[Rfam]
RNA sequence: CACUGUUCCGAGGGGCGCCCGCUUGGGCUGAGACGGCAUUGGCCGAACCCUUCGAACCUGAUCCGGGUCAUGCCGGCGAAGGGACGGGAACCACGGCCUGA
Numbered sequence: 001c002a003c004u005g006u007u008c009c010g011a012g013g014g015g016c017g018c019c020c021g022c023u024u025g026g027g028c029u030g031a032g033a034c035g036g037c038a039u040u041g042g043c044c045g046a047a048c049c050c051u052u053c054g055a056a057c058c059u060g061a062u063c064c065g066g067g068u069c070a071u072g073c074c075g076g077c078g079a080a081g082g083g084a085c086g087g088g089a090a091c092c093a094c095g096g097c098c099u100g101a
Base pairs, nucleotide, nucleotide: 006089007088008087009086010085011051012050013049014048016045017028018027019026020025035044036043037042057082058081059080063076064075065074066073
RNA: TPP riboswitch aptamer (THI element)
Organism: Pseudoxanthobacter soli